The family of this 201-nucleotide RNA sequence from Paenibacillus albilobatus is "Lysine riboswitch aptamer".
The match comes from Rfam's covariance-model search (104 bits).
RNA sequence: AGGUGAGGUAGAGGUUGCGAAAGCGAUGAGUAACUGCAGGGAGGCGCAAGGAACCGCCGCAGAACUGCCGUGAAGGGCGCUUUCGCCGAAGUGUGGGGAUCCGUUCCGAUCGAUCCGCAUGCUGGGGCCGUACCCGAAAGGGGCGGAACUGUCGCGGCCAGCGGCAUGACAAAAUGCCGGCCGUGUUGAGCUAUCUUUCAU
Dot-bracket structure: .....((((((.....(((((((((.......((.((((.........................)))).))......)))))))))...((((((.(((((..........))))).))))))((..((((.((.....)).))))..))..((((((.....................)))))).....)))))).....
Numbered sequence: 001a002g003g004u005g006a007g008g009u010a011g012a013g014g015u016u017g018c019g020a021a022a023g024c025g026a027u028g029a030g031u032a033a034c035u036g037c038a039g040g041g042a043g044g045c046g047c048a049a050g051g052a053a054c055c056g057c058c059g060c061a062g063a064a065c066u067g068c069c070g071u072g073a074a075g076g077g078c079g080c081u082u083u084c085g086c087c088g089a090a091g092u093g094u095g096g097g098g099a100u101c102c103g104u105u106c107c108g109a110u111c112g113a114u115c116c117g118c119a120u121g122c123u124g125g126g127g128c129c130g131u132a133c134c135c136g137a138a139a140g141g142g143g144c145g146g147a148a149c150u151g152u153c154g155c156g157g158c159c160a161g162c163g164g165c166a167u168g169a170c171a172a173a174a175u176g177c178c179g180g181c182c183g184u185g186u187u188g189a190g191c192u193a194u195c196u197u198u199c200a201u
Stems, first nucleotide, its partner, number of pairs: 006196006017086009033071002036068004090123006097116005124150002128146004133141002153185006